A member of the RNA family "Small nucleolar RNA SNORD58" from Catharus fuscescens, 73 nucleotides long.
snoRNA U58 is found in introns 1, 3 and 6 of the ribosomal protein RPL17 gene in humans.
On this family, see Galardi et al., Mol Cell Biol 2002: "Purified box C/D snoRNPs are able to reproduce site-specific 2'-O-methylation of target RNA in vitro".
The family's consensus secondary structure was predicted with PFOLD.
NCBI's taxonomy places the organism under Eukaryota, Euteleostomi, Saurischia, Neoaves, Catharus.
It scores 68 bits against the family's covariance model.
Rfam classes the family as a C/D-box small nucleolar RNA.
[Rfam]
RNA sequence: UUGCUGUGAUGACUAUCUUAGGACACCUUUGGAAUACCUAUGAAAAAAAUCCGAUAAGUUCUUUCUGAGUAAC
Dot-bracket structure: ((((................................................................)))).